Record summary: Shown here is an 85-nucleotide RNA from Terrilactibacillus tamarindi, a member of the family "Group II catalytic intron D1-D4-1". The source organism's lineage runs through Bacteria, Bacillati, Bacillota, Caryophanales and Terrilactibacillus. Rfam's curators write: Group II introns are found in rRNA, tRNA and mRNA of organelles in fungi, plants and protists, and also in mRNA in bacteria. The match comes from Rfam's covariance-model search (70 bits).

Nucleotides: 085
Stems, first nucleotide, its partner, number of pairs: 001025002005022007038045002047085003056078005
Number, partner (000 for none) and nucleotide at each position: 001025u002024a003000a004000c005022u006021g007020a008019a009018c010017a011016u012000g013000a014000g015000a016011a017010u018009g019008u020007u021006c022005a023000c024002u025001g026000a027000a028000c029000g030000a031000u032000c033000a034000g035000a036000a037000g038045u039044c040000a041000g042000c043000a044039g045038a046000a047085g048084c049083c050000a051000u052000a053000g054000u055000a056078a057077u058076g059075g060074g061000c062000a063000u064000u065000u066000c067000u068000a069000g070000a071000a072000u073000a074060c075059c076058c077057a078056u079000g080000a081000a082000g083049g084048g085047c